RNA sequence: AAUAGCCAAAGAUUGUACCUGGGUUGAGGCUAGGAUUAGUAAUGAGGCGUACAUCUCCCAAAUGAGUAUCAUAAAUGCCGCCAAAAAACAUAGCUUUUAGCACGAGCAAGAAUGCUCCUAAACCCAGAAUAAUUAGGUGAUGUCCUAAAAUUAAACUCAAUUGUUUAGGGUCAUUCCA
Numbered sequence: 001a002a003u004a005g006c007c008a009a010a011g012a013u014u015g016u017a018c019c020u021g022g023g024u025u026g027a028g029g030c031u032a033g034g035a036u037u038a039g040u041a042a043u044g045a046g047g048c049g050u051a052c053a054u055c056u057c058c059c060a061a062a063u064g065a066g067u068a069u070c071a072u073a074a075a076u077g078c079c080g081c082c083a084a085a086a087a088a089c090a091u092a093g094c095u096u097u098u099a100g101c102a103c104g105a106g107c108a109a110g111a112a113u114g115c116u117c118c119u120a121a122a123c124c125c126a127g128a129a130u131a132a133u134u135a136g137g138u139g140a141u142g143u144c145c146u147a148a149a150a151u152u153a154a155a156c157u158c159a160a161u162u163g164u165u166u167a168g169g170g171u172c173a174u175u176c177c178a
Base pairs, nucleotide, nucleotide: 136175137174138173139172140171141170144169145168146167147166148165

Antisense RNA which regulates isiA expression: a 178-nucleotide RNA from Nostoc sp. PCC 7524. The literature on the family includes a 2006 paper in Proc Natl Acad Sci U S A by Duhring et al., "An internal antisense RNA regulates expression of the photosynthesis gene isiA". Pairs were carried over by alignment from the consensus structure, which was predicted with PFOLD. The organism belongs to Nostoc, within Bacteria.